RNA sequence: UCUAACUAAUUAAAUAGCAUGCGUAUAAUUGUGGGGAUAUGGCCCAAGAGUUUCUACCAAACACCGUAAAUUGUUUGACUACGCAGGAUAAAGCAGACAUG
Numbered sequence: 001u002c003u004a005a006c007u008a009a010u011u012a013a014a015u016a017g018c019a020u021g022c023g024u025a026u027a028a029u030u031g032u033g034g035g036g037a038u039a040u041g042g043c044c045c046a047a048g049a050g051u052u053u054c055u056a057c058c059a060a061a062c063a064c065c066g067u068a069a070a071u072u073g074u075u076u077g078a079c080u081a082c083g084c085a086g087g088a089u090a091a092a093g094c095a096g097a098c099a100u101g
Base pairs, nucleotide, nucleotide: 018087020085021084022083023082024081025080029049030048032046033045034044035043058077059076060075061074062073063072